[Rfam]
RNA sequence: UCCAUCGGGAGGUGGAAUCCGGAGGAAGUCGGACGGCAAAUCUCUGGUCUGACGGGCAGAAAUCACAUAUAAGGCAUGGCAUAUCGGGUAAGGUUGCUAAACAAACUGAAGCCCAAUAACUAUCCGAAGGUAUGCUGUGUAAAUGUGGCAGAUGGAUGGAGUGAAAGACUAUGCA
Numbered sequence: 001u002c003c004a005u006c007g008g009g010a011g012g013u014g015g016a017a018u019c020c021g022g023a024g025g026a027a028g029u030c031g032g033a034c035g036g037c038a039a040a041u042c043u044c045u046g047g048u049c050u051g052a053c054g055g056g057c058a059g060a061a062a063u064c065a066c067a068u069a070u071a072a073g074g075c076a077u078g079g080c081a082u083a084u085c086g087g088g089u090a091a092g093g094u095u096g097c098u099a100a101a102c103a104a105a106c107u108g109a110a111g112c113c114c115a116a117u118a119a120c121u122a123u124c125c126g127a128a129g130g131u132a133u134g135c136u137g138u139g140u141a142a143a144u145g146u147g148g149c150a151g152a153u154g155g156a157u158g159g160a161g162u163g164a165a166a167g168a169c170u171a172u173g174c175a
Stems, first nucleotide, its partner, number of pairs: 001016006030173002037167001042161005047153005063148006074140003078136007086114004092107004
RNA: Group II catalytic intron D1-D4-3
Organism: Alicyclobacillus sp. SO9